[Rfam]
RNA sequence: ACCAUCCUUUUCUUGGCGUUGCGCUACUGUCCAAUGAGCAUGUAGUGAGGGCAAUACUGCUAAGGCCUGAACGACACACAGCCAUCAACCAGAGCUCUGCUUUACCUUGGUGAAAUUUUUGGAAAA
Numbered sequence: 001a002c003c004a005u006c007c008u009u010u011u012c013u014u015g016g017c018g019u020u021g022c023g024c025u026a027c028u029g030u031c032c033a034a035u036g037a038g039c040a041u042g043u044a045g046u047g048a049g050g051g052c053a054a055u056a057c058u059g060c061u062a063a064g065g066c067c068u069g070a071a072c073g074a075c076a077c078a079c080a081g082c083c084a085u086c087a088a089c090c091a092g093a094g095c096u097c098u099g100c101u102u103u104a105c106c107u108u109g110g111u112g113a114a115a116u117u118u119u120u121g122g123a124a125a126a
Base pairs, nucleotide, nucleotide: 006018008016009015021060022059023058026055028053029052030051031050032049038046039045083112084111085110086109087108091103092102093101094100095099